Background:
This 123-nucleotide RNA sequence from Tichodroma muraria belongs to the Rfam family "Pseudoknot of the regulatory region of the repBA gene". Rfam classes the family as a cis-regulatory element. Gene Ontology term of the family: translation.
RNA sequence: AACCCCCCGACAUCUGUCAUCAUCUUGGCGGAAGACACAGAUAUCAGGGGGUCCAAAAGCAGGCGCGUGGCCUGUGAAGGAUUAUAACGCAUGCACCACAUAACACAACACCCGGCCGCCAUA
Numbered sequence: 001a002a003c004c005c006c007c008c009g010a011c012a013u014c015u016g017u018c019a020u021c022a023u024c025u026u027g028g029c030g031g032a033a034g035a036c037a038c039a040g041a042u043a044u045c046a047g048g049g050g051g052u053c054c055a056a057a058a059g060c061a062g063g064c065g066c067g068u069g070g071c072c073u074g075u076g077a078a079g080g081a082u083u084a085u086a087a088c089g090c091a092u093g094c095a096c097c098a099c100a101u102a103a104c105a106c107a108a109c110a111c112c113c114g115g116c117c118g119c120c121a122u123a
Stems, first nucleotide, its partner, number of pairs: 002052006009045002012042006020035002026118004031113001